[Rfam]
RNA sequence: AGCCGCAUCGGUUAGAUUGGGAUACUCAUCAAUUUAUUUCAGAAAACCGAGAAUGCUUCGCUCACUAAUGGCGGGCCACGCCUUCGGGUAGCUUAAUUGCCGGUGGAUUACAAAGGUGACGGGCGCUCAAAUCUUGUUAGCUCGGAGUUUUCAUCACAUCAUCGGUGCGGCUUUUACC
Number, nucleotide and partner (000 for none) at each position: 001a000002g000003c000004c000005g000006c000007a000008u000009c000010g000011g000012u000013u000014a000015g000016a000017u000018u000019g000020g000021g000022a000023u000024a000025c000026u000027c000028a000029u000030c000031a000032a000033u000034u000035u000036a000037u000038u000039u000040c000041a000042g000043a000044a000045a000046a000047c000048c000049g000050a000051g000052a000053a000054u000055g124056c123057u122058u000059c121060g120061c000062u119063c118064a117065c116066u115067a000068a000069u112070g111071g000072c000073g000074g000075g000076c106077c105078a104079c103080g089081c088082c087083u000084u000085c000086g000087g082088g081089u080090a000091g100092c099093u000094u000095a000096a000097u000098u000099g092100c091101c000102g000103g079104u078105g077106g076107a000108u000109u000110a000111c070112a069113a000114a000115g066116g065117u064118g063119a062120c060121g059122g057123g056124c055125g000126c000127u000128c000129a000130a000131a000132u000133c000134u000135u000136g000137u000138u000139a000140g000141c000142u000143c000144g000145g000146a000147g000148u000149u000150u000151u000152c000153a000154u000155c000156a000157c000158a000159u000160c000161a000162u000163c000164g000165g000166u000167g000168c000169g000170g000171c000172u000173u000174u000175u000176a000177c000178c000
RNA: Bacteroidales-1 6S-Bacteroidales RNA suggested
Organism: Paraprevotella clara